Rfam assigns this 63-nucleotide RNA from Streptomyces sp. So13.3 to the family "Actino-pnp RNA". A search with the family's covariance model found it, with a score of 69 bits.

[Rfam]
RNA sequence: GCCGGUCCUCGGUAGUGGCCUCCGGGCAGCAGGACUCCCCGAAGGCUUCGAUCGAAGACCGGC
Numbered sequence: 001g002c003c004g005g006u007c008c009u010c011g012g013u014a015g016u017g018g019c020c021u022c023c024g025g026g027c028a029g030c031a032g033g034a035c036u037c038c039c040c041g042a043a044g045g046c047u048u049c050g051a052u053c054g055a056a057g058a059c060c061g062g063c
Stems, first nucleotide, its partner, number of pairs: 001063007009055005017047005023041004028036002
Description: Rfam classes the family as a cis-regulatory element.